The family of this 103-nucleotide RNA sequence is "c-di-GMP-II-GAG riboswitch aptamer".
Nucleotides: 103
Base pairs, nucleotide, nucleotide: 002102004100005099006098008096009095010094011093013078014077015076022074024072026070054090055089056086057085058084059083060082
Number, partner (000 for none) and nucleotide at each position: 001000a002102c003000a004100c005099g006098g007000c008096a009095g010094g011093g012000g013078g014077g015076c016000a017000u018000g019000g020000a021000a022074c023000c024072g025000g026070g027000g028000g029000u030000u031000c032000c033000a034000c035000c036000a037000g038000c039000g040000c041000g042000g043000c044000g045000u046000u047000c048000c049000a050000a051000c052000a053000c054090g055089g056086u057085c058084g059083c060082c061000g062000a063000u064000c065000c066000g067000g068000c069000g070026c071000a072024c073000u074022g075000g076015g077014c078013c079000a080000a081000u082060g083059g084058c085057g086056a087000g088000a089055c090054c091000g092000a093011c094010c095009c096008u097000u098006c099005c100004g101000g102002g103000a
The family is grouped with related families in Rfam's "c-di-GMP_II riboswitch clan".